[Rfam]
RNA sequence: CGAGGUUGGACGUCGCGCUCUCCCGUCCCUCGAAGCGGCGGCCAAUCUGAUGGAACGACACGCCCAUCGGCGGCGCGCCACCCUCCCAGGUGGCGCGCC
Numbered sequence: 001c002g003a004g005g006u007u008g009g010a011c012g013u014c015g016c017g018c019u020c021u022c023c024c025g026u027c028c029c030u031c032g033a034a035g036c037g038g039c040g041g042c043c044a045a046u047c048u049g050a051u052g053g054a055a056c057g058a059c060a061c062g063c064c065c066a067u068c069g070g071c072g073g074c075g076c077g078c079c080a081c082c083c084u085c086c087c088a089g090g091u092g093g094c095g096c097g098c099c
Stems, first nucleotide, its partner, number of pairs: 004047006011040006072099011
The record is a 99-nucleotide RNA sequence from Phenylobacterium deserti, which matches "caulobacter sRNA CC1840" in Rfam. The base pairs follow the family's consensus structure. It scores 74 bits against the family's covariance model.